[Rfam]
RNA sequence: ACGCUAAGAGGUGGGAAAGGUACCCCACGCGCCCUAGAGGUUAACAGAGAUGCGGGAUACGCCGCCCCGCCUUAGCGU
Numbered sequence: 001a002c003g004c005u006a007a008g009a010g011g012u013g014g015g016a017a018a019g020g021u022a023c024c025c026c027a028c029g030c031g032c033c034c035u036a037g038a039g040g041u042u043a044a045c046a047g048a049g050a051u052g053c054g055g056g057a058u059a060c061g062c063c064g065c066c067c068c069g070c071c072u073u074a075g076c077g078u
Stems, first nucleotide, its partner, number of pairs: 001078008011028005019063003030047001031041003052070005
The record is a 78-nucleotide RNA, which matches "skipping-rope RNA" in Rfam. It is annotated as a small RNA. Rfam's curators put it in the seed alignment.